The record is a 136-nucleotide RNA from Felis catus, which matches "Small nucleolar RNA SNORA46" in Rfam. About the family: ACA46 is a member of the H/ACA class of snoRNA that guide the sites of modification of uridines to pseudouridines. Rfam's curators put it in the seed alignment. The family's consensus secondary structure was predicted with RNAfold. Rfam classes the family as an H/ACA-box small nucleolar RNA.
[Rfam]
RNA sequence: UGCACUAUUCUUUAAACCUGUGGAUGGGAAUUUUCCCCAUUCUUGGUUACGCUGUAGUGCAAAAGAAUUCCUGGCUCUUUCUCUUGCACAGCUGACCUGCCAUUCUGCUGUUGCUAUGUAGAGUUAAGGAACAUAA
Numbered sequence: 001u002g003c004a005c006u007a008u009u010c011u012u013u014a015a016a017c018c019u020g021u022g023g024a025u026g027g028g029a030a031u032u033u034u035c036c037c038c039a040u041u042c043u044u045g046g047u048u049a050c051g052c053u054g055u056a057g058u059g060c061a062a063a064a065g066a067a068u069u070c071c072u073g074g075c076u077c078u079u080u081c082u083c084u085u086g087c088a089c090a091g092c093u094g095a096c097c098u099g100c101c102a103u104u105c106u107g108c109u110g111u112u113g114c115u116a117u118g119u120a121g122a123g124u125u126a127a128g129g130a131a132c133a134u135a136a
Stems, first nucleotide, its partner, number of pairs: 002060007015048004022042007068131005073125006080118001086114003089110004094105002